[Rfam]
RNA sequence: CCCAUCAAGGGUAAGCCCGGCAAAAUCCGGGGGAGCGAAGCUAAGGGAUCUGAGACGGUUAAUCUGCUAUGGUAGCCCGGCUGCUGGGA
Number, nucleotide and partner (000 for none) at each position: 001c000002c000003c086004a085005u000006c000007a000008a000009g000010g000011g036012u035013a000014a000015g000016c031017c030018c029019g028020g027021c000022a000023a000024a000025a000026u000027c020028c019029g018030g017031g016032g000033g000034a000035g012036c011037g000038a000039a082040g081041c080042u079043a000044a000045g078046g077047g076048a073049u072050c071051u000052g000053a000054g000055a000056c000057g000058g000059u000060u000061a000062a000063u000064c000065u000066g000067c000068u000069a000070u000071g050072g049073u048074a000075g000076c047077c046078c045079g042080g041081c040082u039083g000084c000085u004086g003087g000088g000089a000

Shown here is an 89-nucleotide RNA, a member of the family "c-di-GMP-I-GGC riboswitch aptamer". On this family, see Weinberg et al., Proc Natl Acad Sci U S A 2017: "Bioinformatic analysis of riboswitch structures uncovers variant classes with altered ligand specificity". Pairs were carried over by alignment from the consensus structure, which is taken from published work.